Rfam assigns this 211-nucleotide sequence from Citrus x clementina to the family "U2 spliceosomal RNA". It is annotated as a spliceosomal small nuclear RNA. The base pairs follow the family's consensus structure, which is taken from published work. Rfam 15.1 lists 71,512 matches to the family in 2,642 species. Its family is annotated with mRNA branch site recognition, pre-mRNA branch point binding and U2 snRNP in the Gene Ontology. Taxonomically the source falls in Citrus (Eukaryota, Streptophyta, Euphyllophyta, Aurantioideae). Rfam's curators write: U2 is a small nuclear RNA (snRNA) component of the spliceosome (involved in pre-mRNA splicing). Complementary binding between U2 snRNA (in an area lying towards the 5' end but 3' to hairpin I) and the branchpoint sequence (BPS) of the intron results the bulging out of an unpaired adenosine, on the BPS, which initiates a nucleophilic attack at the intronic 5' splice site, thus starting the first of two transesterification reactions that mediate splicing. The match comes from Rfam's covariance-model search (116 bits).
RNA sequence: AUACUUUUCUCGGCCUGUUUGCGAAGAUCAAGUGUAGCAUCUCAGAUACUGUAUCUGUUCUUAUCAGUUUAAUAUCUGAUAUGUGAGCCAAAGGCUCACACGAUAUUAAAUUAACCAUUUUAAGGCGGAGAGCUCGCUGCGGGAGCUUGCUACCGGGGCUCUCGAGCGUCGCCCUUGCGUUGCACCACUGCAAGGGCCUGGCGCACCCCAC
Numbered sequence: 001a002u003a004c005u006u007u008u009c010u011c012g013g014c015c016u017g018u019u020u021g022c023g024a025a026g027a028u029c030a031a032g033u034g035u036a037g038c039a040u041c042u043c044a045g046a047u048a049c050u051g052u053a054u055c056u057g058u059u060c061u062u063a064u065c066a067g068u069u070u071a072a073u074a075u076c077u078g079a080u081a082u083g084u085g086a087g088c089c090a091a092a093g094g095c096u097c098a099c100a101c102g103a104u105a106u107u108a109a110a111u112u113a114a115c116c117a118u119u120u121u122a123a124g125g126c127g128g129a130g131a132g133c134u135c136g137c138u139g140c141g142g143g144a145g146c147u148u149g150c151u152a153c154c155g156g157g158g159c160u161c162u163c164g165a166g167c168g169u170c171g172c173c174c175u176u177g178c179g180u181u182g183c184a185c186c187a188c189u190g191c192a193a194g195g196g197c198c199u200g201g202c203g204c205a206c207c208c209c210a211c
Base pairs, nucleotide, nucleotide: 008027009026010025013022014021062081063080064079065078066077067076083099084098085097086096087095088094089093128163129162130161131160132159133158134157135156142153144151145150166204167203168202169201170200171199173195174194175193176192177191178190